This 151-nucleotide sequence from Dictyobacter aurantiacus belongs to the Rfam family "Group II catalytic intron D1-D4-7". The base pairs follow the family's consensus structure. On this family, see Bonen and Vogel, Trends Genet 2001: "The ins and outs of group II introns". It scores 115 bits against the family's covariance model. Gene Ontology term of the family: Group II intron splicing. Group II introns are found in rRNA, tRNA and mRNA of organelles in fungi, plants and protists, and also in mRNA in bacteria.
[Rfam]
RNA sequence: CCUGGUGUUCUCCCACCAGUACUCUACCAAGACCCGCGCCAGGAGUAAUCCAGGGGUGGGAAAGCUCUUGGAACAAUGUAUCUCUUCUCGAAAGAGAGUAGCAGAACCGUGAGGGGAAGCUGCAACUGCCAGCAUCAAUGCGGUUAGAGGG
Dot-bracket structure: .((((((......))))))........((((((((((.((.(((....))).)).))))).....)))))..............(((((....))))).(((....((....))....)))...(((((..........))))).......
Numbered sequence: 001c002c003u004g005g006u007g008u009u010c011u012c013c014c015a016c017c018a019g020u021a022c023u024c025u026a027c028c029a030a031g032a033c034c035c036g037c038g039c040c041a042g043g044a045g046u047a048a049u050c051c052a053g054g055g056g057u058g059g060g061a062a063a064g065c066u067c068u069u070g071g072a073a074c075a076a077u078g079u080a081u082c083u084c085u086u087c088u089c090g091a092a093a094g095a096g097a098g099u100a101g102c103a104g105a106a107c108c109g110u111g112a113g114g115g116g117a118a119g120c121u122g123c124a125a126c127u128g129c130c131a132g133c134a135u136c137a138a139u140g141c142g143g144u145u146a147g148a149g150g151g
Stems, first nucleotide, its partner, number of pairs: 002019006028070005033060005039054002042051003085098005100121003107114002125144005